[Rfam]
Source information: The family of this 110-nucleotide RNA sequence from Phocoenobacter uteri is "t44 RNA". Rfam describes the family as follows. This family consists of a number of bacterial RNA genes of between 135 and 170 bases in length. The family's RNA type in Rfam is small RNA.
RNA sequence: UUAUUUUUAAUUCAAAAUCACACACAUAUUUAUCGUUAAUAAUUGGGGUGCUGAAAAAAGUGAUUAAAGGCUUUUUGAUGUCAGAUUAUUAGAAUAUGUGGAGGCUAAAC
Numbered sequence: 001u002u003a004u005u006u007u008u009a010a011u012u013c014a015a016a017a018u019c020a021c022a023c024a025c026a027u028a029u030u031u032a033u034c035g036u037u038a039a040u041a042a043u044u045g046g047g048g049u050g051c052u053g054a055a056a057a058a059a060g061u062g063a064u065u066a067a068a069g070g071c072u073u074u075u076u077g078a079u080g081u082c083a084g085a086u087u088a089u090u091a092g093a094a095u096a097u098g099u100g101g102a103g104g105c106u107a108a109a110c
Base pairs, nucleotide, nucleotide: 023100024099025098026097027096028095029094030093037091038090039089040088041087043084044083045082050081051080
Taxonomically the source falls in Phocoenobacter (Bacteria, Pseudomonadati, Pseudomonadota, Pasteurellales).
The family's consensus secondary structure was predicted with LocARNA.